[Rfam]
RNA sequence: AUGGCUUUGCUUUUGGAAAAUAAAUAAUAUAGCUGCUUGAUUAGUUAAAUCUCAUAGUGGCAUUGUUUAUAAGUGAAGCCAGAUUUAUGUUCCCCUCGCUAUCCUGUGCUGUAUUUUCCAUGUGGUAUAUGGACGUUGGGAAACAAUAUUU
Numbered sequence: 001a002u003g004g005c006u007u008u009g010c011u012u013u014u015g016g017a018a019a020a021u022a023a024a025u026a027a028u029a030u031a032g033c034u035g036c037u038u039g040a041u042u043a044g045u046u047a048a049a050u051c052u053c054a055u056a057g058u059g060g061c062a063u064u065g066u067u068u069a070u071a072a073g074u075g076a077a078g079c080c081a082g083a084u085u086u087a088u089g090u091u092c093c094c095c096u097c098g099c100u101a102u103c104c105u106g107u108g109c110u111g112u113a114u115u116u117u118c119c120a121u122g123u124g125g126u127a128u129a130u131g132g133a134c135g136u137u138g139g140g141a142a143a144c145a146a147u148a149u150u151u
Base pairs, nucleotide, nucleotide: 002081003080004079005078008075009074010073011072012071019068020067023064029063030062032061033060034059035058036057040055041054089144090143091142093140094139095138097135098134102133103132104131111123112122113121
The family of this 151-nucleotide sequence from Aquilegia coerulea is "Small nucleolar RNA snoR136". The literature on the family includes a 2009 paper in Nucleic Acids Res by Chen and Wu, "Mining small RNA sequencing data: a new approach to identify small nucleolar RNAs in Arabidopsis". Its family is annotated with RNA processing and nucleolus in the Gene Ontology. Rfam classes the family as an H/ACA-box small nucleolar RNA.